[Rfam]
RNA sequence: UUGUUAAUGCUAAUCGUGAUAGGGGUUUUAUCUCUUGCUGACUCCUACAUAUUAGCAUUAAUAG
Numbered sequence: 001u002u003g004u005u006a007a008u009g010c011u012a013a014u015c016g017u018g019a020u021a022g023g024g025g026u027u028u029u030a031u032c033u034c035u036u037g038c039u040g041a042c043u044c045c046u047a048c049a050u051a052u053u054a055g056c057a058u059u060a061a062u063a064g
Base pairs, nucleotide, nucleotide: 004061005060006059007058008057009056010055011054012053013052014051020047021046022045023044025042026041027040
RNA: mir-155 microRNA precursor family
Organism: Salvator merianae